Shown here is an 87-nucleotide RNA from Cnephaeus nilssonii, a member of the family "mir-9195 microRNA precursor family".
Taxonomically the source falls in Cnephaeus (Eukaryota, Chordata, Sarcopterygii, Laurasiatheria).
[Rfam]
RNA sequence: AGAGGCCCUUUGCAGUCAGGGUGGAAUGCUUGCCUCAUCGCCGUGGUGACAAAGCAAGCAUUCCGCCAGGCCGCUCAUGCUGCCCAC
Number, nucleotide and partner (000 for none) at each position: 001a000002g000003a000004g084005g083006c082007c000008c000009u000010u000011u000012g074013c073014a000015g071016u070017c069018a000019g000020g067021g066022u065023g064024g063025a062026a061027u060028g059029c058030u057031u056032g055033c054034c000035u000036c000037a000038u049039c048040g047041c046042c000043g000044u000045g000046g041047u040048g039049a038050c000051a000052a000053a000054g033055c032056a031057a030058g029059c028060a027061u026062u025063c024064c023065g022066c021067c020068a000069g017070g016071c015072c000073g013074c012075u000076c000077a000078u000079g000080c000081u000082g006083c005084c004085c000086a000087c000